[Rfam]
Shown here is a 117-nucleotide RNA sequence from Pelotomaculum isophthalicicum, a member of the family "Molybdenum/Tungsten riboswitch aptamer (Moco RNA motif)".
Its family is annotated with regulation of gene expression, molybdenum ion binding and tungstate binding in the Gene Ontology.
It scores 71 bits against the family's covariance model.
The source organism's lineage runs through Bacteria, Bacillati, Desulfotomaculaceae, Pelotomaculum and Pelotomaculum isophthalicicum.
RNA sequence: UUAAAAUAAAAUCUCCGAGCCUGUUUAACCUAAGCUAAAGGUAUGGUUAGCGGGCCGCUAGGGUAUAUUGGGAAACCGGUAUGCCUCCCAUCGGAAAGGAGAAAGAUAGCUUUAUCU
Numbered sequence: 001u002u003a004a005a006a007u008a009a010a011a012u013c014u015c016c017g018a019g020c021c022u023g024u025u026u027a028a029c030c031u032a033a034g035c036u037a038a039a040g041g042u043a044u045g046g047u048u049a050g051c052g053g054g055c056c057g058c059u060a061g062g063g064u065a066u067a068u069u070g071g072g073a074a075a076c077c078g079g080u081a082u083g084c085c086u087c088c089c090a091u092c093g094g095a096a097a098g099g100a101g102a103a104a105g106a107u108a109g110c111u112u113u114a115u116c117u
Stems, first nucleotide, its partner, number of pairs: 003111001012102005019055006026049005034042003061086011087094002